[Rfam]
RNA: c-di-GMP-I riboswitch aptamer
RNA sequence: CAUAUGAAAAGGUAAACUUACUGAAAGGUAAGGACACAAAGCCAUGAGUCUAAAGUGUGAAUGCACCAUGAUCGUCAGGUUGCCAAA
Numbered sequence: 001c002a003u004a005u006g007a008a009a010a011g012g013u014a015a016a017c018u019u020a021c022u023g024a025a026a027g028g029u030a031a032g033g034a035c036a037c038a039a040a041g042c043c044a045u046g047a048g049u050c051u052a053a054a055g056u057g058u059g060a061a062u063g064c065a066c067c068a069u070g071a072u073c074g075u076c077a078g079g080u081u082g083c084c085a086a087a
Stems, first nucleotide, its partner, number of pairs: 012037002017032006040081004045077003048072003055066004